[Rfam]
RNA sequence: UUUGACACAAAGUCAAAGACUUAUGCGGAAUAACCACCGCGUAGCCAGGAGAACUGGCAUUGGACUCCUAAAAAAGGAGAAAACAAAUG
Dot-bracket structure: ((((((.....))))))....(((((((........)))))))((((.......))))...............................

The family of this 89-nucleotide RNA is "freshwater-2 RNA". Pairs were carried over by alignment from the consensus structure, which is taken from published work. The sequence is in the family's curated seed alignment.